[Rfam]
RNA sequence: GGUCCUGUGGCGCAAUGGAUAACGCGUCUGACUACGGAUCAGAAGAUUGCAGGUUCGAAUCCUGCCAGGAUCG
Numbered sequence: 001g002g003u004c005c006u007g008u009g010g011c012g013c014a015a016u017g018g019a020u021a022a023c024g025c026g027u028c029u030g031a032c033u034a035c036g037g038a039u040c041a042g043a044a045g046a047u048u049g050c051a052g053g054u055u056c057g058a059a060u061c062c063u064g065c066c067a068g069g070a071u072c073g
Stems, first nucleotide, its partner, number of pairs: 001072007010025003027043005049065005
RNA: tRNA
Organism: Cloeon dipterum